[Rfam]
RNA sequence: UAGCGCGUCAUCUGGGGAGUAGCCAGCCGUCGGGAAACCAGCGGGCCGCGCGUCAACAUAUUUGGUGGAGACACCAUGGUGCGCGGGACAGGAACGAUCGAUCCUGUCUGUCGAGACCAAUGGCAUCGGCUUUCCGUCCGGUCGGGCGGGGGGGGCCGGUGACAUUGUGCUCCAUCCUGCCC
Numbered sequence: 001u002a003g004c005g006c007g008u009c010a011u012c013u014g015g016g017g018a019g020u021a022g023c024c025a026g027c028c029g030u031c032g033g034g035a036a037a038c039c040a041g042c043g044g045g046c047c048g049c050g051c052g053u054c055a056a057c058a059u060a061u062u063u064g065g066u067g068g069a070g071a072c073a074c075c076a077u078g079g080u081g082c083g084c085g086g087g088a089c090a091g092g093a094a095c096g097a098u099c100g101a102u103c104c105u106g107u108c109u110g111u112c113g114a115g116a117c118c119a120a121u122g123g124c125a126u127c128g129g130c131u132u133u134c135c136g137u138c139c140g141g142u143c144g145g146g147c148g149g150g151g152g153g154g155g156c157c158g159g160u161g162a163c164a165u166u167g168u169g170c171u172c173c174a175u176c177c178u179g180c181c182c
Stems, first nucleotide, its partner, number of pairs: 027044003046086010063076005
RNA: Manganese Mn2+ riboswitch aptamer (yybP-ykoY)
Organism: Sphingobium sp. SCG-1